[Rfam]
RNA: Manganese Mn2+ riboswitch aptamer (yybP-ykoY)
RNA sequence: GAUCGGGUCACUGGGGAGUAGCCGCUCUUCGCCCGAAGAGGCCUGCGCCAACAUACUCGGCCGGAUGGCCGUGGUGCAGGCAGUCCUUGGACCUGGCAAGACCUUUGACCAUGCUGCCUCUGCUCGGCCGGGGACGCAGCGUGGUCAUGCGUCUUGAUUCCGGCCCGG
Numbered sequence: 001g002a003u004c005g006g007g008u009c010a011c012u013g014g015g016g017a018g019u020a021g022c023c024g025c026u027c028u029u030c031g032c033c034c035g036a037a038g039a040g041g042c043c044u045g046c047g048c049c050a051a052c053a054u055a056c057u058c059g060g061c062c063g064g065a066u067g068g069c070c071g072u073g074g075u076g077c078a079g080g081c082a083g084u085c086c087u088u089g090g091a092c093c094u095g096g097c098a099a100g101a102c103c104u105u106u107g108a109c110c111a112u113g114c115u116g117c118c119u120c121u122g123c124u125c126g127g128c129c130g131g132g133g134a135c136g137c138a139g140c141g142u143g144g145u146c147a148u149g150c151g152u153c154u155u156g157a158u159u160c161c162g163g164c165c166c167g168g
Stems, first nucleotide, its partner, number of pairs: 026039003041081010058071005088168001